Annotation: Shown here is a 98-nucleotide RNA sequence from Zea mays, a member of the family "Small nucleolar RNA Z221/R21b". The match comes from Rfam's covariance-model search (72 bits). The literature on the family includes a 2003 paper in Nucleic Acids Res by Chen et al., "The high diversity of snoRNAs in plants: identification and comparative study of 120 snoRNA genes from Oryza sativa". It is annotated as a C/D-box small nucleolar RNA.
[Rfam]
RNA sequence: GGGCAAUGAUGAUGCAAAGUCAUGCACCACUCUGAAUGAGGGAUUUUUCUCUCUUUGGGCUGACAAGCAAACUUUCUACCCAUUGUUUAUCUGAGCCU
Numbered sequence: 001g002g003g004c005a006a007u008g009a010u011g012a013u014g015c016a017a018a019g020u021c022a023u024g025c026a027c028c029a030c031u032c033u034g035a036a037u038g039a040g041g042g043a044u045u046u047u048u049c050u051c052u053c054u055u056u057g058g059g060c061u062g063a064c065a066a067g068c069a070a071a072c073u074u075u076c077u078a079c080c081c082a083u084u085g086u087u088u089a090u091c092u093g094a095g096c097c098u
Stems, first nucleotide, its partner, number of pairs: 001098004